A member of the RNA family "Bacteroidales-1 6S-Bacteroidales RNA suggested" from Porphyromonas sp. HMSC065F10, 168 nucleotides long. Pairs were carried over by alignment from the consensus structure, which is taken from published work. About the family: Bacteroidales-1 was first reported in a comparative genomics-based approach of genome and metagenome sequences from Weinberg et al. 2010 In a high-resolution transcriptome map study of Bacteroides thetaiotaomicron, Ryan et al. 2020 report this sRNA as 6S RNA homologue of Bacteroides, in the study they obtain evidence of small product RNAs (pRNAs) related to 6S function. The organism belongs to Porphyromonas, within Bacteria.
[Rfam]
RNA sequence: AUUCGCGUCGGGCACACGGGAAACUCGUCAAUAUUAAAACAAUUCCGAGACCCUUGGAUCUUGCGAUGGCGUGCCGUGGCUCUUUAUGGGCGGACGGAUUACAAAGCACGAUUCAUCCUCAAAUCCUUACUUUCGGAGUUAUCCAAAGUCCCCGACGCGAUCUUAUAA
Numbered sequence: 001a002u003u004c005g006c007g008u009c010g011g012g013c014a015c016a017c018g019g020g021a022a023a024c025u026c027g028u029c030a031a032u033a034u035u036a037a038a039a040c041a042a043u044u045c046c047g048a049g050a051c052c053c054u055u056g057g058a059u060c061u062u063g064c065g066a067u068g069g070c071g072u073g074c075c076g077u078g079g080c081u082c083u084u085u086a087u088g089g090g091c092g093g094a095c096g097g098a099u100u101a102c103a104a105a106g107c108a109c110g111a112u113u114c115a116u117c118c119u120c121a122a123a124u125c126c127u128u129a130c131u132u133u134c135g136g137a138g139u140u141a142u143c144c145a146a147a148g149u150c151c152c153c154g155a156c157g158c159g160a161u162c163u164u165a166u167a168a
Stems, first nucleotide, its partner, number of pairs: 055115006062108003067103002074097004081090003